[Rfam]
RNA sequence: UUUCGAUGUAGAGGCGCGGUAUCGAAUAGUAUUCAUGGUUGGGGUGAUGCCAAUGAACCAUGAAGAAAGGCUAUAUCGCCGAAGUCAGUUUGCACAUCAAAGCGGCUGGCUGGGGUUGUUCGCGAAUAGCGCCAACACUGCCAUAGUCUAUAUUUUGUUAAACUAUGGAGCGCUACUGUAGGG
Numbered sequence: 001u002u003u004c005g006a007u008g009u010a011g012a013g014g015c016g017c018g019g020u021a022u023c024g025a026a027u028a029g030u031a032u033u034c035a036u037g038g039u040u041g042g043g044g045u046g047a048u049g050c051c052a053a054u055g056a057a058c059c060a061u062g063a064a065g066a067a068a069g070g071c072u073a074u075a076u077c078g079c080c081g082a083a084g085u086c087a088g089u090u091u092g093c094a095c096a097u098c099a100a101a102g103c104g105g106c107u108g109g110c111u112g113g114g115g116u117u118g119u120u121c122g123c124g125a126a127u128a129g130c131g132c133c134a135a136c137a138c139u140g141c142c143a144u145a146g147u148c149u150a151u152a153u154u155u156u157g158u159u160a161a162a163c164u165a166u167g168g169a170g171c172g173c174u175a176c177u178g179u180a181g182g183g
Base pairs, nucleotide, nucleotide: 008176009175010174011173016079017078018077019076020075021074022073024071032064033063034062035061036060037059038058039057083111084110085109086108087107088106089105090104112139113138115136116135117134118133121131122130123129141168142167143166144165145164146163147162
Shown here is a 183-nucleotide sequence from Vibrio furnissii, a member of the family "Lysine riboswitch aptamer". Rfam's curators write: Riboswitches are metabolite binding domains within certain messenger RNAs that serve as precision sensors for their corresponding targets. Rfam links the family to the GO term lysine biosynthetic process. The family has 47 seed sequences and 3,224 matches in Rfam 15.1. The source organism's lineage runs through Bacteria, Gammaproteobacteria, Vibrionales, Vibrionaceae and Vibrio.